A member of the RNA family "ROOL RNA", 571 nucleotides long. The family's consensus secondary structure is taken from published work. Rfam classes the family as a small RNA. Firmicutes, Fusobacteria (1 example), Tenericutes (1 example).
[Rfam]
RNA sequence: GAUUUUGAACAAUCUACUGAAUAACCAAGUGUAGAUAGGGUGACACCUUGCUUGGAUUGCAUACAUAAAUCCCGUUACGCUUCCCGUGAGAUAUUGCGGAAAGAUAAGUAAUUCUCUUUUGAGUAAUUAAAAGAGGUCAUGAAGUGUAAGAAGAUUGAGGGCGUAUGCAGUAUAGAGGUUGUGCGUAAUUAGACCAUUAUCAGACGGUGGCGGUGACAAUAGACGCUUUCAGUGAAAGAAUAAUCUGGGGUAGGCCUUGCGUAGCAGUAAGAACCGAACCAGAAAUGCUAAAUUAAACCGUUUUGCACUUGAGGUCGAGGGAUCGGCCAAUAACACUAAAGAUAAGUACAAGUAGCCCAAAACGUGCAGACGAUACAUUAGAAUGUAUUAAUGCUUAAAAUAUAUUUCUGAAUGUCGGGUGAAAGUUGGACGUAACCAGUCGUGCCUAGUCAUUUAAUCGCUACGGAAGUUAUAGGGUCGCUCCUUAUGGCUCAGACCGUGGUAGGCUAUCGGUCAAUAAAUUGCGUACAGUCGAAGUAGAGCGAAGGCUCAUUUAGUUGAUUGUUUAAAG
Numbered sequence: 001g002a003u004u005u006u007g008a009a010c011a012a013u014c015u016a017c018u019g020a021a022u023a024a025c026c027a028a029g030u031g032u033a034g035a036u037a038g039g040g041u042g043a044c045a046c047c048u049u050g051c052u053u054g055g056a057u058u059g060c061a062u063a064c065a066u067a068a069a070u071c072c073c074g075u076u077a078c079g080c081u082u083c084c085c086g087u088g089a090g091a092u093a094u095u096g097c098g099g100a101a102a103g104a105u106a107a108g109u110a111a112u113u114c115u116c117u118u119u120u121g122a123g124u125a126a127u128u129a130a131a132a133g134a135g136g137u138c139a140u141g142a143a144g145u146g147u148a149a150g151a152a153g154a155u156u157g158a159g160g161g162c163g164u165a166u167g168c169a170g171u172a173u174a175g176a177g178g179u180u181g182u183g184c185g186u187a188a189u190u191a192g193a194c195c196a197u198u199a200u201c202a203g204a205c206g207g208u209g210g211c212g213g214u215g216a217c218a219a220u221a222g223a224c225g226c227u228u229u230c231a232g233u234g235a236a237a238g239a240a241u242a243a244u245c246u247g248g249g250g251u252a253g254g255c256c257u258u259g260c261g262u263a264g265c266a267g268u269a270a271g272a273a274c275c276g277a278a279c280c281a282g283a284a285a286u287g288c289u290a291a292a293u294u295a296a297a298c299c300g301u302u303u304u305g306c307a308c309u310u311g312a313g314g315u316c317g318a319g320g321g322a323u324c325g326g327c328c329a330a331u332a333a334c335a336c337u338a339a340a341g342a343u344a345a346g347u348a349c350a351a352g353u354a355g356c357c358c359a360a361a362a363c364g365u366g367c368a369g370a371c372g373a374u375a376c377a378u379u380a381g382a383a384u385g386u387a388u389u390a391a392u393g394c395u396u397a398a399a400a401u402a403u404a405u406u407u408c409u410g411a412a413u414g415u416c417g418g419g420u421g422a423a424a425g426u427u428g429g430a431c432g433u434a435a436c437c438a439g440u441c442g443u444g445c446c447u448a449g450u451c452a453u454u455u456a457a458u459c460g461c462u463a464c465g466g467a468a469g470u471u472a473u474a475g476g477g478u479c480g481c482u483c484c485u486u487a488u489g490g491c492u493c494a495g496a497c498c499g500u501g502g503u504a505g506g507c508u509a510u511c512g513g514u515c516a517a518u519a520a521a522u523u524g525c526g527u528a529c530a531g532u533c534g535a536a537g538u539a540g541a542g543c544g545a546a547g548g549c550u551c552a553u554u555u556a557g558u559u560g561a562u563u564g565u566u567u568a569a570a571g
Stems, first nucleotide, its partner, number of pairs: 008567002012563001015560002018557001020555002025055005037048003057170006074112005081102002084099006113136010138146003178533001180531001188523001190521001195513001197345004206337004210301005226238004244283004249279001253275002256271003262290004304368005314327005349425001355420004360415001407496004429445001447509003459506001462502001466498001469492001471489007540551004
Dot-bracket structure: .......((..(..((.(.((...(((((.......(((......)))..))))).((((((...........(((((..((.((((((....)))))).)).....)))))((((((((((....)))))))))).(((...)))..................)))))).......(.(.......(.(....(.((((.....(((((((((...........((((.....)))).....((((.(...((.(((...[[[[...)))..))...)))))...]]]]......)))))..[[[[[.....(((((....)))))......))))....))))...(.....((((.(...]]]]]......................................[[[[....).))))....)...(...............).(((.........(..(...(..(.(((((((.....)))))))..)]]]].)...)...))))...).......).).......).)......((((....))))..)).).))..)..))....